The record is a 214-nucleotide RNA from Chara braunii, which matches "Plant small nucleolar RNA U3" in Rfam. Small nucleolar RNAs (snoRNAs) are involved in the processing and modification of rRNA in the nucleolus. There are two main classes of snoRNAs: the box C/D class, and the box H/ACA class. U3 snoRNA is a member of the box C/D class. A reference for the family is Zwieb (1997), "The uRNA database", Nucleic Acids Res. The family's RNA type in Rfam is C/D-box small nucleolar RNA. Lineage of the source: Eukaryota > Viridiplantae > Streptophytina > Charophyceae > Chara. Clan: U3 clan. Rfam 15.1 lists 3,759 matches to the family in 258 species. The family's consensus secondary structure is taken from published work.
[Rfam]
RNA sequence: ACGACUGUACUUGAACAGGAUCUGUUCUGUAAGUCGUACACUCUUCUGUAUCUACGAAUAUAGAUGAUUCGUCAAUCCUGGAUGAAAAGAAGAGACUUCAACUUCUGAGCGCGAAUGCUAGGGGGGUUGGAUGCUUCGGUUUCCUCUCACCAUUGAUGAACGCCCCCUGUGGCCUUGGCUGAGGAGUGGUGCAGUGGGAGCGCUCUGACAGGUA
Numbered sequence: 001a002c003g004a005c006u007g008u009a010c011u012u013g014a015a016c017a018g019g020a021u022c023u024g025u026u027c028u029g030u031a032a033g034u035c036g037u038a039c040a041c042u043c044u045u046c047u048g049u050a051u052c053u054a055c056g057a058a059u060a061u062a063g064a065u066g067a068u069u070c071g072u073c074a075a076u077c078c079u080g081g082a083u084g085a086a087a088a089g090a091a092g093a094g095a096c097u098u099c100a101a102c103u104u105c106u107g108a109g110c111g112c113g114a115a116u117g118c119u120a121g122g123g124g125g126g127u128u129g130g131a132u133g134c135u136u137c138g139g140u141u142u143c144c145u146c147u148c149a150c151c152a153u154u155g156a157u158g159a160a161c162g163c164c165c166c167c168u169g170u171g172g173c174c175u176u177g178g179c180u181g182a183g184g185a186g187u188g189g190u191g192c193a194g195u196g197g198g199a200g201c202g203c204u205c206u207g208a209c210a211g212g213u214a
Stems, first nucleotide, its partner, number of pairs: 001037002003034001005033002013027006042067002045064001047062005077212004096200004101195003105191001109163003119152001121150001123148003129144003133140002165186001167184002170181004